[Rfam]
RNA sequence: UGGUCGGGAGGCACCCAGUGGGAUGGGCGCCAAGAAUUGGCCGAAACGAUCUGUUCUCAGGGUUCGUCCCCGCCGCCCAUCGGUGACGCG
Numbered sequence: 001u002g003g004u005c006g007g008g009a010g011g012c013a014c015c016c017a018g019u020g021g022g023a024u025g026g027g028c029g030c031c032a033a034g035a036a037u038u039g040g041c042c043g044a045a046a047c048g049a050u051c052u053g054u055u056c057u058c059a060g061g062g063u064u065c066g067u068c069c070c071c072g073c074c075g076c077c078c079a080u081c082g083g084u085g086a087c088g089c090g
Stems, first nucleotide, its partner, number of pairs: 001043005010031003014027004063090001065088004070083003

Notes: Rhodo-rpoB RNA: a 90-nucleotide sequence from Octadecabacter arcticus. Pairs were carried over by alignment from the consensus structure, which is taken from published work. It is annotated as a cis-regulatory element.